[Rfam]
RNA sequence: AAAAACCGCCAUCAGAGGAGUAGUUCCCCAACCAGGAACAACCUUACCGUAUUCAGAAUUU
Numbered sequence: 001a002a003a004a005a006c007c008g009c010c011a012u013c014a015g016a017g018g019a020g021u022a023g024u025u026c027c028c029c030a031a032c033c034a035g036g037a038a039c040a041a042c043c044u045u046a047c048c049g050u051a052u053u054c055a056g057a058a059u060u061u
Stems, first nucleotide, its partner, number of pairs: 017045002020042002023039005

Plastid-psbN 5UTR RNA: a 61-nucleotide RNA from Leptolyngbyaceae cyanobacterium JSC-12.
A search with the family's covariance model found it, with a score of 57 bits.
Plastid psbN is a non-coding RNA (ncRNA) recognised in plastids. It was reported as a conserved 11 stem-loop in the prime untranslated region (5UTR) of psbN genes. It has been reported that the motif is retained in a subset of mature transcripts in barley, which can suggests a possible role in transcript alternative 5 prime processing.
NCBI's taxonomy places the organism under Bacteria, Bacillati, Cyanobacteriota, Cyanophyceae, Leptolyngbyaceae.
It is annotated as a cis-regulatory element.